Description: The family of this 203-nucleotide sequence from Lachancea dasiensis is "Small nucleolar RNA snR31". The family is grouped with related families in Rfam's "SNORA8 clan". The family's RNA type in Rfam is H/ACA-box small nucleolar RNA. It scores 143 bits against the family's covariance model.
[Rfam]
RNA sequence: AAACCAUCAAUCAACCAUGUGUUCCACUGAUGUCACCGUAGCUUCUUUCCAAUGGCUCGGUUUGAUAUUCGUUGGUAAUAAUCAUACGAUGCAUGGGAGAAAGAUGGUUUAAGAUGUAUCUCCAGCUAUUGAAAAUGACCGGAAGCCUUUUUCUUUCGGUCGCUCAAAAUCUGAUAUAGUUGGUCAUGAUUCUUGCAACAGAU
Numbered sequence: 001a002a003a004c005c006a007u008c009a010a011u012c013a014a015c016c017a018u019g020u021g022u023u024c025c026a027c028u029g030a031u032g033u034c035a036c037c038g039u040a041g042c043u044u045c046u047u048u049c050c051a052a053u054g055g056c057u058c059g060g061u062u063u064g065a066u067a068u069u070c071g072u073u074g075g076u077a078a079u080a081a082u083c084a085u086a087c088g089a090u091g092c093a094u095g096g097g098a099g100a101a102a103g104a105u106g107g108u109u110u111a112a113g114a115u116g117u118a119u120c121u122c123c124a125g126c127u128a129u130u131g132a133a134a135a136u137g138a139c140c141g142g143a144a145g146c147c148u149u150u151u152u153c154u155u156u157c158g159g160u161c162g163c164u165c166a167a168a169a170u171c172u173g174a175u176a177u178a179g180u181u182g183g184u185c186a187u188g189a190u191u192c193u194u195g196c197a198a199c200a201g202a203u
Stems, first nucleotide, its partner, number of pairs: 015096008030069001031067004035061004043054001070088003073084003111194001113192002122183008137161009